[Rfam]
RNA sequence: AGGAAUUGAAGUGGAGAUAGUGCUUCCACGCACCUAGAAAUAGGUCAAAAGAAAUGUAGGAAGGGGCACACCUACCAAUUACC
Numbered sequence: 001a002g003g004a005a006u007u008g009a010a011g012u013g014g015a016g017a018u019a020g021u022g023c024u025u026c027c028a029c030g031c032a033c034c035u036a037g038a039a040a041u042a043g044g045u046c047a048a049a050a051g052a053a054a055u056g057u058a059g060g061a062a063g064g065g066g067c068a069c070a071c072c073u074a075c076c077a078a079u080u081a082c083c
Stems, first nucleotide, its partner, number of pairs: 002082001004080005011029005020069005031051001032045004056075005

skipping-rope RNA: an 83-nucleotide RNA sequence from Clostridium sp. CAG:470.
The source organism's lineage runs through Bacteria, Bacillati, Bacillota, Clostridia and Clostridium.
Pairs were carried over by alignment from the consensus structure, which is taken from published work.
The family's RNA type in Rfam is small RNA.